[Rfam]
RNA sequence: UAGCCAGGCCGGGCCCCUCUGGUCGCUCCUCACAGGAGCGGCGAUGUCGGACUGGAUGA
Dot-bracket structure: .....((.((((.........((((((((.....))))))))....)))).))......

The record is a 59-nucleotide RNA sequence from Microvirga sp. BSC39, which matches "terC RNA" in Rfam. The family's consensus secondary structure is taken from published work. Rfam classes the family as a cis-regulatory element. The organism belongs to Microvirga, within Bacteria.